A member of the RNA family "Small nucleolar SNORD12/SNORD106" from Leptobrachium leishanense, 91 nucleotides long. Its family is annotated with RNA processing and nucleolus in the Gene Ontology. The family is grouped with related families in Rfam's "SNORD12 clan". For this family Rfam cites "RNomics: an experimental approach that identifies 201 candidates for novel, small, non-messenger RNAs in mouse" (Huttenhofer et al., EMBO J, 2001).
RNA sequence: UGCUGACUGCAUGAUGACCAAUCUUUUUUCCCCAUCAGAGCGACACUGUUGACCUGGUACUUUAUAAGCCAAUAUUGUCUGAUUGUCAGCA
Numbered sequence: 001u002g003c004u005g006a007c008u009g010c011a012u013g014a015u016g017a018c019c020a021a022u023c024u025u026u027u028u029u030c031c032c033c034a035u036c037a038g039a040g041c042g043a044c045a046c047u048g049u050u051g052a053c054c055u056g057g058u059a060c061u062u063u064a065u066a067a068g069c070c071a072a073u074a075u076u077g078u079c080u081g082a083u084u085g086u087c088a089g090c091a
Base pairs, nucleotide, nucleotide: 001091002090003089004088005087006086007085009083